[Rfam]
U4 spliceosomal RNA: a 131-nucleotide RNA from Ectocarpus sp. CCAP 1310/34. Rfam describes the family as follows. U4 small nuclear RNA (U4 snRNA) is a component of the major U2-dependent spliceosome. The organism belongs to Ectocarpus, within Eukaryota. The base pairs follow the family's consensus structure, which is taken from published work. A search with the family's covariance model found it, with a score of 88 bits. It is annotated as a spliceosomal small nuclear RNA.

RNA sequence: AUCUCUGCUCCUAGGGCUUUAUCAUUGGAAGUGAAGCUCUGCUGAUCCGUGAUUAUUGCUAGUUGAAAACUACUCCAAUCCCGUGUGGUAGACCUAACGGUCACCACCAAUUUCUGAUCCCCCUUGUGGGG
Numbered sequence: 001a002u003c004u005c006u007g008c009u010c011c012u013a014g015g016g017c018u019u020u021a022u023c024a025u026u027g028g029a030a031g032u033g034a035a036g037c038u039c040u041g042c043u044g045a046u047c048c049g050u051g052a053u054u055a056u057u058g059c060u061a062g063u064u065g066a067a068a069a070c071u072a073c074u075c076c077a078a079u080c081c082c083g084u085g086u087g088g089u090a091g092a093c094c095u096a097a098c099g100g101u102c103a104c105c106a107c108c109a110a111u112u113u114c115u116g117a118u119c120c121c122c123c124u125u126g127u128g129g130g131g
Stems, first nucleotide, its partner, number of pairs: 021053005027048003035043003083108001085107005091102004120131004